[Rfam]
RNA: Group II catalytic intron D1-D4-4
Nucleotides: 142
Stems, first nucleotide, its partner, number of pairs: 020043005051090005056081006065072002098116001100114005119135002
Number, partner (000 for none) and nucleotide at each position: 001000u002000a003000g004000c005000c006000g007000g008000u009000g010000a011000a012000a013000a014000u015000c016000c017000g018000g019000u020043c021042a022041u023040g024039g025000g026000a027000g028000g029000g030000g031000c032000c033000a034000a035000g036000c037000c038000c039024c040023c041022a042021u043020g044000u045000a046000g047000c048000u049000a050000g051090g052089a053088u054087g055086c056081c057080u058079g059078c060077g061076u062000a063000c064000g065072g066071c067000g068000a069000a070000a071066g072065c073000u074000u075000u076061g077060c078059g079058c080057a081056g082000a083000a084000g085000c086055g087054c088053a089052u090051c091000g092000a093000c094000a095000a096000a097000a098116g099000u100114c101113u102112u103111g104110u105000c106000g107000g108000a109000g110104a111103c112102a113101g114100g115000g116098c117000g118000a119135g120134c121000a122000a123000c124000a125000u126000g127000c128000c129000a130000g131000g132000c133000c134120g135119u136000a137000a138000c139000a140000u141000u142000a